The family of this 79-nucleotide RNA sequence from Phtheirospermum japonicum is "Small nucleolar RNA R21". On this family, see Barneche et al., J Mol Biol 2001: "Identification of 66 box C/D snoRNAs in Arabidopsis thaliana: extensive gene duplications generated multiple isoforms predicting new ribosomal RNA 2'-O-methylation sites". Taxonomically the source falls in Phtheirospermum (Eukaryota, Streptophyta, Euphyllophyta, asterids).

RNA sequence: AGUCCCUAUGAAGAUCAUUUUGUAUAGAAAUAAAAGUAGUGGGCUGAAAUACAUUGAUGAUAUCUUGUUCUGAGGGAUU
Numbered sequence: 001a002g003u004c005c006c007u008a009u010g011a012a013g014a015u016c017a018u019u020u021u022g023u024a025u026a027g028a029a030a031u032a033a034a035a036g037u038a039g040u041g042g043g044c045u046g047a048a049a050u051a052c053a054u055u056g057a058u059g060a061u062a063u064c065u066u067g068u069u070c071u072g073a074g075g076g077a078u079u
Stems, first nucleotide, its partner, number of pairs: 001079006